[Rfam]
RNA sequence: CGCUCACGCUGGCGAGGUGCUGACCGCCAGGGCGUGGGGGACAUCGAGCACUGGGGGGAUGCCGUGAGAAGCUCGACGCGCUGGCGAAGAUAGAGGCGCGAGGCGAAAUGUCUGUCGGGC
Numbered sequence: 001c002g003c004u005c006a007c008g009c010u011g012g013c014g015a016g017g018u019g020c021u022g023a024c025c026g027c028c029a030g031g032g033c034g035u036g037g038g039g040g041a042c043a044u045c046g047a048g049c050a051c052u053g054g055g056g057g058g059a060u061g062c063c064g065u066g067a068g069a070a071g072c073u074c075g076a077c078g079c080g081c082u083g084g085c086g087a088a089g090a091u092a093g094a095g096g097c098g099c100g101a102g103g104c105g106a107a108a109u110g111u112c113u114g115u116c117g118g119g120c
Stems, first nucleotide, its partner, number of pairs: 001040001003038008027054004045075005061104003077100006089116006
RNA: Betaproteobacteria-1 RNA
Organism: Burkholderia thailandensis